[Rfam]
RNA: cow-rumen-3 RNA
RNA sequence: GGAUUGUGCUUAAUGAGUACGAUCUUUAUGAGAAGGUACGAACCGCAAAAAGGGAAUACUAGUUGUAUCUCUCUCCUCUGGUGACCAGUAUGUCUAAAAACUACCGUUUGGGCUGGGUGAAAUGCCCUUGGUCCACC
Dot-bracket structure: ((((.(((((.....))))).))))....(((.((((((...((.(.....)))..........))))))..))).......(((......)))..............((((((((((.....))))..))))))..